Rfam assigns this 81-nucleotide RNA sequence from Myotis brandtii to the family "mir-574 microRNA precursor family".
For this family Rfam cites "Patterns of known and novel small RNAs in human cervical cancer" (Lui et al., Cancer Res, 2007).
Rfam 15.1 lists 4,084 matches to the family in 7 species.
The family is grouped with related families in Rfam's "mir-574 microRNA precursor clan".
Rfam links the family to the GO terms RISC complex and miRNA-mediated post-transcriptional gene silencing.
NCBI's taxonomy places the organism under Eukaryota, Amniota, Theria, Chiroptera, Myotis.
[Rfam]
RNA sequence: AGGCCCAGAGAGAGAAGCAGGAUCUGAUCCGCAGUCUCUGUGGCAGCUGCUGAUCAGCCCUUGCCUCUCUCUCUCUAUGCC
Numbered sequence: 001a002g003g004c005c006c007a008g009a010g011a012g013a014g015a016a017g018c019a020g021g022a023u024c025u026g027a028u029c030c031g032c033a034g035u036c037u038c039u040g041u042g043g044c045a046g047c048u049g050c051u052g053a054u055c056a057g058c059c060c061u062u063g064c065c066u067c068u069c070u071c072u073c074u075c076u077a078u079g080c081c
Base pairs, nucleotide, nucleotide: 008073009072010071011070012069013068014067015066017064018063019062020061024057025056026055027054028053029052032049033048034047035046